[Rfam]
RNA sequence: CAACAACUGAAUAGAUCUUUUCGUAUAAUUCCGGGGAUAGGCCCGGAAGUCUCUACGAGGUCACCGCAAAUGAUCUGGCUACGGAAAGUGGAAGAAGCUUG
Number, nucleotide and partner (000 for none) at each position: 001c000002a000003a000004c000005a000006a000007c000008u000009g000010a000011a000012u000013a000014g000015a000016u000017c000018u087019u086020u085021u084022c083023g082024u081025a080026u000027a000028a000029u048030u047031c046032c045033g044034g043035g042036g000037a000038u000039a000040g000041g000042c035043c034044c033045g032046g031047a030048a029049g000050u000051c000052u000053c000054u000055a000056c000057g000058a076059g075060g074061u073062c072063a071064c000065c000066g000067c000068a000069a000070a000071u063072g062073a061074u060075c059076u058077g000078g000079c000080u025081a024082c023083g022084g021085a020086a019087a018088g000089u000090g000091g000092a000093a000094g000095a000096a000097g000098c000099u000100u000101g000
RNA: Purine riboswitch aptamer
Organism: Cohnella faecalis